RNA: c-di-AMP riboswitch aptamer (ydaO/yuaA leader)
RNA sequence: ACGUCACCUCCGCCUAAUCCGGCCGGCGGCCGGAACCGGGGACCCACCAGCAGUAAUUGGGGUGAAUCGGGACAGACGCCCGCAAGCGUCCGUACCGUAGGGCAGCCUUCCCAGCCCGAACCCGUCAGCUAACCCGGUCGGCGGUCCACGGAAGGAGU
Numbered sequence: 001a002c003g004u005c006a007c008c009u010c011c012g013c014c015u016a017a018u019c020c021g022g023c024c025g026g027c028g029g030c031c032g033g034a035a036c037c038g039g040g041g042a043c044c045c046a047c048c049a050g051c052a053g054u055a056a057u058u059g060g061g062g063u064g065a066a067u068c069g070g071g072a073c074a075g076a077c078g079c080c081c082g083c084a085a086g087c088g089u090c091c092g093u094a095c096c097g098u099a100g101g102g103c104a105g106c107c108u109u110c111c112c113a114g115c116c117c118g119a120a121c122c123c124g125u126c127a128g129c130u131a132a133c134c135c136g137g138u139c140g141g142c143g144g145u146c147c148a149c150g151g152a153a154g155g156a157g158u
Stems, first nucleotide, its partner, number of pairs: 011143004018034005035138006045059002060123003068097003100117004